This 114-nucleotide sequence from Magnetospirillum sp. UT-4 belongs to the Rfam family "TPP riboswitch aptamer (THI element)". The match comes from Rfam's covariance-model search (74 bits). Vitamin B(1) in its active form thiamin pyrophosphate (TPP) is an essential coenzyme that is synthesised by coupling of pyrimidine and thiazole moieties in bacteria. The base pairs follow the family's consensus structure, which is taken from published work.

RNA sequence: UUCUUCCCGAAGGGGAGCCCCGGAUGCGGGGCUGAGAGGCCGGAGCGCGUCCGCCGGCGACCCUUGGAACCUGAUCCGGGUCAUGCCGGCGAAGGGAUCGGAUCCUGCUCCGCC
Numbered sequence: 001u002u003c004u005u006c007c008c009g010a011a012g013g014g015g016a017g018c019c020c021c022g023g024a025u026g027c028g029g030g031g032c033u034g035a036g037a038g039g040c041c042g043g044a045g046c047g048c049g050u051c052c053g054c055c056g057g058c059g060a061c062c063c064u065u066g067g068a069a070c071c072u073g074a075u076c077c078g079g080g081u082c083a084u085g086c087c088g089g090c091g092a093a094g095g096g097a098u099c100g101g102a103u104c105c106u107g108c109u110c111c112g113c114c
Stems, first nucleotide, its partner, number of pairs: 007101004011064004017032005039058005070095003076089004